[Rfam]
RNA sequence: CACGUCUGCAGCGACUGGCGUGCCGAGGGUGGAACUGACCACCGGGAAGCGACGGCCGCGCACCGAACGCCUGGGUGCCCGGC
Numbered sequence: 001c002a003c004g005u006c007u008g009c010a011g012c013g014a015c016u017g018g019c020g021u022g023c024c025g026a027g028g029g030u031g032g033a034a035c036u037g038a039c040c041a042c043c044g045g046g047a048a049g050c051g052a053c054g055g056c057c058g059c060g061c062a063c064c065g066a067a068c069g070c071c072u073g074g075g076u077g078c079c080c081g082g083c
Stems, first nucleotide, its partner, number of pairs: 003058002006055003011050002015046002017071005029042004060078005
RNA: ZMP/ZTP riboswitch aptamer (pfl RNA motif)